The family of this 74-nucleotide RNA sequence is "RAGATH-18 RNA". From the family's description: Actinobacteria, Firmicutes, Fusobacteria, Thermotogae (1 example). It is annotated as a small RNA.
RNA sequence: ACUGUGGAGUGUACUUAGGAUCUGUGAGUAGAGAUAACUACGGUUACUCAAAAGCAUACACGAAGAAACAGUAA
Numbered sequence: 001a002c003u004g005u006g007g008a009g010u011g012u013a014c015u016u017a018g019g020a021u022c023u024g025u026g027a028g029u030a031g032a033g034a035u036a037a038c039u040a041c042g043g044u045u046a047c048u049c050a051a052a053a054g055c056a057u058a059c060a061c062g063a064a065g066a067a068a069c070a071g072u073a074a
Stems, first nucleotide, its partner, number of pairs: 001072005009061005023056003031049003